[Rfam]
RNA sequence: UCAGUCGGCUGGACGGUCGCUCCCGCAAGCACGGAAACGUCGCGGGGGAGGAAAGUCCGGGCUCCACGGAAAAACGGUGCCGGGUAACACCCGGCGGGGGCGACCCCAGGGAAAGUGCCACAGAAAGCAAACCGCCAUGGCCCAGGCCACGGCAAGGGUGAAAGGGUGGGGUAAGAGCCCACCGCGCGACCGGCAACGGAAGCGGCACGGUAAACCCCACCGGGAGCAAAACCGAAUAGGGGCGACGGGGGACCUUCGGGUUCCGGCCCGUUUCCAGGCCAGUCGUCCGGGUAGGUUGCGUGAGGCGUUCGGCAACGAACGUCCCAGAUGAAUGGUCGUCGCGUGCGGCGCUUGCGUCGCGCCAUACAGAACCCGGCUUAGAGGCCGACUGACACU
Numbered sequence: 001u002c003a004g005u006c007g008g009c010u011g012g013a014c015g016g017u018c019g020c021u022c023c024c025g026c027a028a029g030c031a032c033g034g035a036a037a038c039g040u041c042g043c044g045g046g047g048g049a050g051g052a053a054a055g056u057c058c059g060g061g062c063u064c065c066a067c068g069g070a071a072a073a074a075c076g077g078u079g080c081c082g083g084g085u086a087a088c089a090c091c092c093g094g095c096g097g098g099g100g101c102g103a104c105c106c107c108a109g110g111g112a113a114a115g116u117g118c119c120a121c122a123g124a125a126a127g128c129a130a131a132c133c134g135c136c137a138u139g140g141c142c143c144a145g146g147c148c149a150c151g152g153c154a155a156g157g158g159u160g161a162a163a164g165g166g167u168g169g170g171g172u173a174a175g176a177g178c179c180c181a182c183c184g185c186g187c188g189a190c191c192g193g194c195a196a197c198g199g200a201a202g203c204g205g206c207a208c209g210g211u212a213a214a215c216c217c218c219a220c221c222g223g224g225a226g227c228a229a230a231a232c233c234g235a236a237u238a239g240g241g242g243c244g245a246c247g248g249g250g251g252a253c254c255u256u257c258g259g260g261u262u263c264c265g266g267c268c269c270g271u272u273u274c275c276a277g278g279c280c281a282g283u284c285g286u287c288c289g290g291g292u293a294g295g296u297u298g299c300g301u302g303a304g305g306c307g308u309u310c311g312g313c314a315a316c317g318a319a320c321g322u323c324c325c326a327g328a329u330g331a332a333u334g335g336u337c338g339u340c341g342c343g344u345g346c347g348g349c350g351c352u353u354g355c356g357u358c359g360c361g362c363c364a365u366a367c368a369g370a371a372c373c374c375g376g377c378u379u380a381g382a383g384g385c386c387g388a389c390u391g392a393c394a395c396u
Stems, first nucleotide, its partner, number of pairs: 001392010012340007020048007028040001053379003057376005062226004071273003075222005080094005095109001096107004110217002115215002117211003132157002134153003138149004165183006184206001185204003190199003230297004240288006265280004304323008

The family of this 396-nucleotide RNA from Stappia sp. ES.058 is "Bacterial RNase P class A". It scores 296 bits against the family's covariance model. Rfam links the family to the GO terms ribonuclease P activity, dimeric ribonuclease P complex and tRNA processing.